[Rfam]
RNA sequence: GGCGUAAAGGGCGUGUAGGCGGAAAGGUAAGUUAGUUGUCAAAGAUCGGGGCUCAACCCCGAGUCGGCAUCUAAUACUAUUUUUCUAGAGGAUAGAUGGAGAAAAGGGAAUUUCACGUGUAGCGGUGAAAUGCGUAGAUAUGUGGAAGAACACCAGUGGCGAAGGCGCUUUUCUAAUUUAUACCUGACGCUAAGGCGCGAAAGCAAGGGGAGCAAACAGGAUUAGAUACCCUGGUAGUCCUUGCCGUAAACGAUGCAUACUUGAUGUGGAUGGUCUCAACCCCAUCCGUGUCGGAGCUAACGCGUUAAGUAUGCCGCCUGAGGAGUACACUCGCAAGGGUGAAACUCAAAAGAAU
Numbered sequence: 001g002g003c004g005u006a007a008a009g010g011g012c013g014u015g016u017a018g019g020c021g022g023a024a025a026g027g028u029a030a031g032u033u034a035g036u037u038g039u040c041a042a043a044g045a046u047c048g049g050g051g052c053u054c055a056a057c058c059c060c061g062a063g064u065c066g067g068c069a070u071c072u073a074a075u076a077c078u079a080u081u082u083u084u085c086u087a088g089a090g091g092a093u094a095g096a097u098g099g100a101g102a103a104a105a106g107g108g109a110a111u112u113u114c115a116c117g118u119g120u121a122g123c124g125g126u127g128a129a130a131u132g133c134g135u136a137g138a139u140a141u142g143u144g145g146a147a148g149a150a151c152a153c154c155a156g157u158g159g160c161g162a163a164g165g166c167g168c169u170u171u172u173c174u175a176a177u178u179u180a181u182a183c184c185u186g187a188c189g190c191u192a193a194g195g196c197g198c199g200a201a202a203g204c205a206a207g208g209g210g211a212g213c214a215a216a217c218a219g220g221a222u223u224a225g226a227u228a229c230c231c232u233g234g235u236a237g238u239c240c241u242u243g244c245c246g247u248a249a250a251c252g253a254u255g256c257a258u259a260c261u262u263g264a265u266g267u268g269g270a271u272g273g274u275c276u277c278a279a280c281c282c283c284a285u286c287c288g289u290g291u292c293g294g295a296g297c298u299a300a301c302g303c304g305u306u307a308a309g310u311a312u313g314c315c316g317c318c319u320g321a322g323g324a325g326u327a328c329a330c331u332c333g334c335a336a337g338g339g340u341g342a343a344a345c346u347c348a349a350a351a352g353a354a355u
Stems, first nucleotide, its partner, number of pairs: 001318003009315001011198004016192001018191003022085007030078002032074004037069004046062006089185003092181006100174007107151001111147008122133003159166002203244006212238002217233004255314006263292011296303002320347003329340004
A member of the RNA family "Bacterial small subunit ribosomal RNA" from Chlamydia trachomatis, 355 nucleotides of a longer RNA.